Source information:
Shown here is a 146-nucleotide sequence from Propithecus coquereli, a member of the family "Small nucleolar RNA SNORA12". About the family: U108 belongs to the H/ACA family of snoRNAs.
RNA sequence: CUGGGUGAAAGAGUGAGAUCCCUCUGGCACGUUUGUUAAGUUUUCUCCUGACUCUGUCACAUAUAUUAUAUCGGAGAUGGCAAAGGCUUGAUAACAAAGAGAUCUCUCUUAAGCCUUUCCUGCAUCAGAGAUUGGCUCCCACAUGU
Numbered sequence: 001c002u003g004g005g006u007g008a009a010a011g012a013g014u015g016a017g018a019u020c021c022c023u024c025u026g027g028c029a030c031g032u033u034u035g036u037u038a039a040g041u042u043u044u045c046u047c048c049u050g051a052c053u054c055u056g057u058c059a060c061a062u063a064u065a066u067u068a069u070a071u072c073g074g075a076g077a078u079g080g081c082a083a084a085g086g087c088u089u090g091a092u093a094a095c096a097a098a099g100a101g102a103u104c105u106c107u108c109u110u111a112a113g114c115c116u117u118u119c120c121u122g123c124a125u126c127a128g129a130g131a132u133u134g135g136c137u138c139c140c141a142c143a144u145g146u
Base pairs, nucleotide, nucleotide: 005060006059007058008057010055011054026048027047035045073139074138075137076136078134079088080087081086105131106130107129108128109127

Notes:
A reference for the family is Gu et al. (2005), "A novel experimental approach for systematic identification of box H/ACA snoRNAs from eukaryotes", Nucleic Acids Res. The organism belongs to Propithecus, within Eukaryota.